The record is a 147-nucleotide RNA sequence from Rhododendron simsii, which matches "U12 minor spliceosomal RNA" in Rfam.

[Rfam]
RNA sequence: AUGCCUUAAACUAAUGAGUAAGGAAAACAAAGAAAGCGGCGGGAGCUGCUCUUAGCGAUUUCGUGUGUAUGAAAUUUUGGAGGGGUUAAAAGGCUGGUCGAGCUGCGACGCUGCCUACCUAGCAGAACUCGAUCGUGCGGGCCUCCC
Numbered sequence: 001a002u003g004c005c006u007u008a009a010a011c012u013a014a015u016g017a018g019u020a021a022g023g024a025a026a027a028c029a030a031a032g033a034a035a036g037c038g039g040c041g042g043g044a045g046c047u048g049c050u051c052u053u054a055g056c057g058a059u060u061u062c063g064u065g066u067g068u069a070u071g072a073a074a075u076u077u078u079g080g081a082g083g084g085g086u087u088a089a090a091a092g093g094c095u096g097g098u099c100g101a102g103c104u105g106c107g108a109c110g111c112u113g114c115c116u117a118c119c120u121a122g123c124a125g126a127a128c129u130c131g132a133u134c135g136u137g138c139g140g141g142c143c144u145c146c147c
Stems, first nucleotide, its partner, number of pairs: 004023005032053002035050005055068003085147001091144005097138001099135002104131002107128001111125004

Notes:
Rfam classes the family as a spliceosomal small nuclear RNA. A reference for the family is Tarn and Steitz (1997), "Pre-mRNA splicing: the discovery of a new spliceosome doubles the challenge", Trends Biochem Sci. Rfam 15.1 lists 2,106 matches to the family in 1,170 species. The organism belongs to Rhododendron, within Eukaryota.